[Rfam]
RNA: Purine riboswitch aptamer
Organism: Bacillus sp. B14905
RNA sequence: AUAGAUUCAUACAAUUUUACUCAUAUAAUAGCGAGGAUAUGGCUUGCAAGUUUCUACCGAUUUACCGUAAAUAAAUCGACUAUGGGUAGCAAUGCUUUUAGA
Numbered sequence: 001a002u003a004g005a006u007u008c009a010u011a012c013a014a015u016u017u018u019a020c021u022c023a024u025a026u027a028a029u030a031g032c033g034a035g036g037a038u039a040u041g042g043c044u045u046g047c048a049a050g051u052u053u054c055u056a057c058c059g060a061u062u063u064a065c066c067g068u069a070a071a072u073a074a075a076u077c078g079a080c081u082a083u084g085g086g087u088a089g090c091a092a093u094g095c096u097u098u099u100a101g102a
Stems, first nucleotide, its partner, number of pairs: 018088008029049001031047005058078007